Notes
This 107-nucleotide RNA sequence from Inhella gelatinilytica belongs to the Rfam family "TPP riboswitch aptamer (THI element)". Gene Ontology term of the family: thiamine pyrophosphate binding. NCBI's taxonomy places the organism under Bacteria, Pseudomonadati, Betaproteobacteria, Sphaerotilaceae, Inhella.
RNA sequence: GCUCCACGCUAGGGGUGCUGGCCGCAGUUUCACCGCGUCCGGCUGAGAAAAACCCUUGGAACCUGAAUCGAGGUAAUCCUCGCGCAGGGAAGCGUGGUCAAGGCUCC
Numbered sequence: 001g002c003u004c005c006a007c008g009c010u011a012g013g014g015g016u017g018c019u020g021g022c023c024g025c026a027g028u029u030u031c032a033c034c035g036c037g038u039c040c041g042g043c044u045g046a047g048a049a050a051a052a053c054c055c056u057u058g059g060a061a062c063c064u065g066a067a068u069c070g071a072g073g074u075a076a077u078c079c080u081c082g083c084g085c086a087g088g089g090a091a092g093c094g095u096g097g098u099c100a101a102g103g104c105u106c107c
Stems, first nucleotide, its partner, number of pairs: 006095005011056004016050001017043005062088004069082004